The family of this 85-nucleotide RNA sequence from Camellia sinensis is "Small nucleolar RNA Z102/R77". Lineage of the source: Eukaryota > Embryophyta > Tracheophyta > Gunneridae > Camellia. It scores 83 bits against the family's covariance model. Its family is annotated with RNA processing and nucleolus in the Gene Ontology. Rfam 15.1 lists 1,346 matches to the family in 224 species. For this family Rfam cites "The high diversity of snoRNAs in plants: identification and comparative study of 120 snoRNA genes from Oryza sativa" (Chen et al., Nucleic Acids Res, 2003). It is annotated as a C/D-box small nucleolar RNA.
RNA sequence: GAAUGAGAUGAUGAUCAGGAUUUUAUUUCCCUAUUGGUUUGAUCGCCUAUAUGAUGGCAUUUGUAUUAGCUCUAUCUGAUCAUUC
Numbered sequence: 001g002a003a004u005g006a007g008a009u010g011a012u013g014a015u016c017a018g019g020a021u022u023u024u025a026u027u028u029c030c031c032u033a034u035u036g037g038u039u040u041g042a043u044c045g046c047c048u049a050u051a052u053g054a055u056g057g058c059a060u061u062u063g064u065a066u067u068a069g070c071u072c073u074a075u076c077u078g079a080u081c082a083u084u085c
Stems, first nucleotide, its partner, number of pairs: 002084004041061001045058003